Overview
A member of the RNA family "Small nucleolar RNA SNORD14" from Chlorella vulgaris, 125 nucleotides long. The match comes from Rfam's covariance-model search (64 bits). The family's RNA type in Rfam is C/D-box small nucleolar RNA.

RNA sequence: GGGUGAUGAUCGAUAAUUCCAAACAGGGCGUUUCUCAAAAACAUUCGCAGUGCCCGCUUUAGAGCGUUCGCCUUUCGCCAGGCUUGAGCGCUGCUGCAGCUUUCCUUCCUUGGAUGUCUGAACCC
Numbered sequence: 001g002g003g004u005g006a007u008g009a010u011c012g013a014u015a016a017u018u019c020c021a022a023a024c025a026g027g028g029c030g031u032u033u034c035u036c037a038a039a040a041a042c043a044u045u046c047g048c049a050g051u052g053c054c055c056g057c058u059u060u061a062g063a064g065c066g067u068u069c070g071c072c073u074u075u076c077g078c079c080a081g082g083c084u085u086g087a088g089c090g091c092u093g094c095u096g097c098a099g100c101u102u103u104c105c106u107u108c109c110u111u112g113g114a115u116g117u118c119u120g121a122a123c124c125c
Base pairs, nucleotide, nucleotide: 001125002124003123004122064091065090066089067088068087069086